The record is a 119-nucleotide RNA sequence, which matches "Flavobacterium-1 RNA" in Rfam.

RNA sequence: UCACACCGGCGUCCAAAUCUUGCCUCUGGCAUUUCCCUGUACGUUAGCGAUGACCGCAAGGUAGCAACGUGUGUGACACCUGUGGCGUCAGAGUUCCCUGAUCAGGAUGGCGCCUGGGU
Numbered sequence: 001u002c003a004c005a006c007c008g009g010c011g012u013c014c015a016a017a018u019c020u021u022g023c024c025u026c027u028g029g030c031a032u033u034u035c036c037c038u039g040u041a042c043g044u045u046a047g048c049g050a051u052g053a054c055c056g057c058a059a060g061g062u063a064g065c066a067a068c069g070u071g072u073g074u075g076a077c078a079c080c081u082g083u084g085g086c087g088u089c090a091g092a093g094u095u096c097c098c099u100g101a102u103c104a105g106g107a108u109g110g111c112g113c114c115u116g117g118g119u
Base pairs, nucleotide, nucleotide: 001076002075003074004073005072006071007069008068009044010043011042012041014039015038021031022030023029024028047065048064054061055060079118080117081116082115084114085113086112087111088110089109090108097106098105099104

By type it is a small RNA. Rfam's curators put it in the seed alignment.